[Rfam]
RNA sequence: GUGAUUUUUUUCAUAGUAUUAGAUUUAAGGUUAACAAAGGUUGGAGCAAAGCGUUGCUCCUUUUCCUUUUUUAAG
Numbered sequence: 001g002u003g004a005u006u007u008u009u010u011u012c013a014u015a016g017u018a019u020u021a022g023a024u025u026u027a028a029g030g031u032u033a034a035c036a037a038a039g040g041u042u043g044g045a046g047c048a049a050a051g052c053g054u055u056g057c058u059c060c061u062u063u064u065c066c067u068u069u070u071u072u073a074a075g
Stems, first nucleotide, its partner, number of pairs: 043060007
This 75-nucleotide sequence from Phocaeicola vulgatus belongs to the Rfam family "Bacteroidetes FopS (family of paralogous sRNAs)". By type it is a small RNA. The family's consensus secondary structure is taken from published work. The sequence is in the family's curated seed alignment. On this family, see Ruttiger et al., Nat Commun 2025: "The global RNA-binding protein RbpB is a regulator of polysaccharide utilization in Bacteroides thetaiotaomicron". From the family's description: The RNA-binding protein RbpB and BTncRNA_FopS sRNA are involved in the post-transcription regulation of polysaccharide utilisation loci (PUL). FopS sRNAs function as post-transcriptional repressors by binding to the vicinity of the start codon of the first mRNA of target PUL polycistrons, typically corresponding to the cognate SusC homolog, impeding translation of the respective glycan transporter. The organism belongs to Phocaeicola vulgatus, within Bacteria. Gene Ontology term of the family: sRNA-mediated gene silencing.